[Rfam]
RNA sequence: CUUACAGAGUUCAUUGGCAUUCUGUCCACCUCCCUCGUUCUUUUUUCGAAAAAAGUAGGAGGAAAGCAAGAUUAGUGUGGAGGUGGGCAUACUGCCAAUAGAGCUGUGUUGG
Numbered sequence: 001c002u003u004a005c006a007g008a009g010u011u012c013a014u015u016g017g018c019a020u021u022c023u024g025u026c027c028a029c030c031u032c033c034c035u036c037g038u039u040c041u042u043u044u045u046u047c048g049a050a051a052a053a054a055g056u057a058g059g060a061g062g063a064a065a066g067c068a069a070g071a072u073u074a075g076u077g078u079g080g081a082g083g084u085g086g087g088c089a090u091a092c093u094g095c096c097a098a099u100a101g102a103g104c105u106g107u108g109u110u111g112g
Stems, first nucleotide, its partner, number of pairs: 011102001014098006023089011
RNA: MIR394 microRNA precursor family